[Rfam]
RNA sequence: CAGUGGAGGAAGGAUCCACCCAGAGAGUUGUCGAUUGAUCUGGUAGCUGACGAGCGGUUUGGACGAGCAAUCGGACGGAUCGAAGCCUCGUGACAAAGGUCGCUUUAGGCGGCCGAGCAAUCCAGCGGGCCGUAACGUGA
Numbered sequence: 001c002a003g004u005g006g007a008g009g010a011a012g013g014a015u016c017c018a019c020c021c022a023g024a025g026a027g028u029u030g031u032c033g034a035u036u037g038a039u040c041u042g043g044u045a046g047c048u049g050a051c052g053a054g055c056g057g058u059u060u061g062g063a064c065g066a067g068c069a070a071u072c073g074g075a076c077g078g079a080u081c082g083a084a085g086c087c088u089c090g091u092g093a094c095a096a097a098g099g100u101c102g103c104u105u106u107a108g109g110c111g112g113c114c115g116a117g118c119a120a121u122c123c124a125g126c127g128g129g130c131c132g133u134a135a136c137g138u139g140a
Base pairs, nucleotide, nucleotide: 020043021042022041023040024039050091051090052089053088054087055082056081057080058079059078060077064073065072098114099113100112101111102110103109117133118132